[Rfam]
RNA: bablM sRNA
RNA sequence: GCACAAAUACAAUGGAAUCUAAAAUUCUCAUUAGAAUAUUUUUAUGGUCUAAUUGUUUAUGAUAAAAUGU
Numbered sequence: 001g002c003a004c005a006a007a008u009a010c011a012a013u014g015g016a017a018u019c020u021a022a023a024a025u026u027c028u029c030a031u032u033a034g035a036a037u038a039u040u041u042u043u044a045u046g047g048u049c050u051a052a053u054u055g056u057u058u059a060u061g062a063u064a065a066a067a068u069g070u
Stems, first nucleotide, its partner, number of pairs: 014028005033050003037046003